[Rfam]
RNA sequence: AACCAUGGUAGAGGCGCUGUAUUUAAGAGUACUCUGAGGAAGUCGGCGGAUGUGGAUUUCAGAGGGAAGGAAAUACAGCCGAAGAAAAAGAAUCGGCGGAUUGUUUUUCUGGAACUGUAUAGAAUAUGUACAGGGCUGUCGCUUUGAUAAGUGUUGAGCUACAAGGUUG
Numbered sequence: 001a002a003c004c005a006u007g008g009u010a011g012a013g014g015c016g017c018u019g020u021a022u023u024u025a026a027g028a029g030u031a032c033u034c035u036g037a038g039g040a041a042g043u044c045g046g047c048g049g050a051u052g053u054g055g056a057u058u059u060c061a062g063a064g065g066g067a068a069g070g071a072a073a074u075a076c077a078g079c080c081g082a083a084g085a086a087a088a089a090g091a092a093u094c095g096g097c098g099g100a101u102u103g104u105u106u107u108u109c110u111g112g113a114a115c116u117g118u119a120u121a122g123a124a125u126a127u128g129u130a131c132a133g134g135g136c137u138g139u140c141g142c143u144u145u146g147a148u149a150a151g152u153g154u155u156g157a158g159c160u161a162c163a164a165g166g167u168u169g
Stems, first nucleotide, its partner, number of pairs: 006164001008162004016079009032064008083110007091102004111137002115133007140153005
A member of the RNA family "Lysine riboswitch aptamer" from Peptacetobacter hominis, 169 nucleotides long. A search with the family's covariance model found it, with a score of 96 bits. Taxonomically the source falls in Peptacetobacter (Bacteria, Bacillati, Bacillota, Clostridia).